[Rfam]
Source information:
Shown here is a 267-nucleotide sequence from Nannospalax galili, a member of the family "Mason-Pfizer monkey virus packaging signal". It is annotated as a cis-regulatory element. A search with the family's covariance model found it, with a score of 150 bits. About the family: This family represents a group of sequences that are related to the Mason-Pfizer monkey virus (MPMV) packaging signal. The packaging signal is located in the 5' UTR and is required for specific RNA encapsidation.

RNA sequence: UGGUGCCCAACGUGGUGACUGGAUACUGGGGGCAUAUCAUGAGGGAGAUGAUGGAAAAAGGAAGGAGUGCACUCGCUAAAUCUCAAGGAAUUCGGAGACACCAGGACUGAAAGGAAGGUAAGUUGUGCUGUCCGAUCAUGGGGCAAGAAUUAAGCCAGCAUCAGAUUUAUAUUACGCAGUUGAGGGAGGCUCUCAAGACAAGAGGAGUAAAGGUUAAGACUGUGGAUUUAUUUCAUUUCUUUGAUUUUGUAAAGGACAUUUGUCCUU
Dot-bracket structure: .....(((...(((.........)))...)))....((((.......))))............................(((((.............................)).)))......(((..((((....)))))))......(.(((...............................)))..)........((((((...(((((.........))))).......)))))).........((((((....))))))